[Rfam]
RNA sequence: AAACACCCCGCAGAAGAGACUCGCCCCGGCCCGGCCGCGCGGCGGGCGCCGACGGAGCAACCGCCCCGGAAACUCUCAGGCAGACAGGACUGCGCGGUGUAG
Numbered sequence: 001a002a003a004c005a006c007c008c009c010g011c012a013g014a015a016g017a018g019a020c021u022c023g024c025c026c027c028g029g030c031c032c033g034g035c036c037g038c039g040c041g042g043c044g045g046g047c048g049c050c051g052a053c054g055g056a057g058c059a060a061c062c063g064c065c066c067c068g069g070a071a072a073c074u075c076u077c078a079g080g081c082a083g084a085c086a087g088g089a090c091u092g093c094g095c096g097g098u099g100u101a102g
Stems, first nucleotide, its partner, number of pairs: 006097002009094005020046006048081003051077002055075003061069002
Notes: Glycine riboswitch aptamer: a 102-nucleotide RNA from Achromobacter sp. AONIH1.